[Rfam]
RNA sequence: GAAAGACAGGUGAGAAUCCUGUCCACCGAAUGACUAAGGUUUCCUGGGGAAGGCUCGUCCACCCAGGGUAAGUCGGGACCUAAGCCGAGGCCGAGAGGCGUAGGCGAUGGAUAACAGGUUGAGAUUCCUGUACCAGUUAACUGCGUUUGACGAUGGAGGGACGCAGGAGGCUAAGCGAACCGUACGAUUGGAAGAGUACGGCCAAGCAACGAGUCAGGAUGUGAGUCAAAUGCUUACAUUCGGGUUGACAAGUUGUGAUGGGGAGCGAAAUUUAUAGUAGCGAAGUCGCUGAUGUCACACUGCCGAGAAAAGCUUCUAAGGAGCACGUUAACUGCCCGUACCGCAAACCGACACAGGUAGUCGAGGAGAGAAUCCUAAGGUGAG
Dot-bracket structure: ....((((((.......))))))((((....((((..((...((((((...((.....)).))))))......((((.((...(((.(.(((....))).).)))...))...(((((........)))))..((((((((.(.......(...((((....((((..(((..(((((.((((((..........))))))((..((((...(((.(((((((.((.....)).))))))).....)))...))))...))...((.(.........).))....)))))...)))...)))).........))))...).....)))))))))))))..)).....((......)).)))).((((.....))))..))))..

The family of this 384-nucleotide part of an RNA from Limosilactobacillus frumenti is "Bacterial large subunit ribosomal RNA". The organism belongs to Limosilactobacillus frumenti, within Bacteria. Its Rfam clan is "LSU clan".